MIR390 microRNA precursor family: a 156-nucleotide sequence from Papaver somniferum. The organism belongs to Papaver, within Eukaryota. Its family is annotated with RISC complex and miRNA-mediated post-transcriptional gene silencing in the Gene Ontology. The family has 16 seed sequences and 649 matches in Rfam 15.1. It scores 79 bits against the family's covariance model. The literature on the family includes a 2005 paper in Genome Res by Adai et al., "Computational prediction of miRNAs in Arabidopsis thaliana".

[Rfam]
RNA sequence: AGGAAGCAUCUGUGAAGCUCAGGAGGGAUAGCGCCAUAGAUCUCUCUCUCUCAAACAUGUACACUCUCUCUCUCUCUCGAUCUUGAUCAUGCAUGAGUAGAGGAGAUAAAGAGAGAUAGAUUGCGCUAUCCAUCCUGAGUUUCAUCUGAUCUUCUU
Numbered sequence: 001a002g003g004a005a006g007c008a009u010c011u012g013u014g015a016a017g018c019u020c021a022g023g024a025g026g027g028a029u030a031g032c033g034c035c036a037u038a039g040a041u042c043u044c045u046c047u048c049u050c051u052c053a054a055a056c057a058u059g060u061a062c063a064c065u066c067u068c069u070c071u072c073u074c075u076c077u078c079g080a081u082c083u084u085g086a087u088c089a090u091g092c093a094u095g096a097g098u099a100g101a102g103g104a105g106a107u108a109a110a111g112a113g114a115g116a117u118a119g120a121u122u123g124c125g126c127u128a129u130c131c132a133u134c135c136u137g138a139g140u141u142u143c144a145u146c147u148g149a150u151c152u153u154c155u156u
Base pairs, nucleotide, nucleotide: 016141017140018139019138020137021136022135023134024133026131027130028129029128030127031126032125033124034123